Rfam assigns this 44-nucleotide RNA sequence from Paenibacillus macerans to the family "PreQ1 (pre queuosine) riboswitch aptamer". From the family's description: This family is a bacterial riboswitch that binds to the metabolite preQ1, an intermediate in the biosynthesis of the modified nucleoside queuosine from GTP. One example of this riboswitch is located in the leader of the Bacillus subtilis ykvJKLM (queCDEF) operon which encodes four genes necessary for queuosine production. PreQ1 binding to the riboswitch aptamer is thought to induce premature transcription termination within the leader to down-regulate expression of these genes. Pairs were carried over by alignment from the consensus structure.

Nucleotides: 044
Base pairs, nucleotide, nucleotide: 006026007025008024009023010022016036
Number, partner (000 for none) and nucleotide at each position: 001000a002000u003000g004000g005000g006026a007025g008024a009023g010022g011000u012000u013000c014000g015000a016036g017000a018000a019000c020000u021000c022010c023009c024008u025007c026006u027000a028000u029000a030000a031000a032000a033000a034000a035000c036016u037000a038000u039000a040000a041000a042000a043000c044000g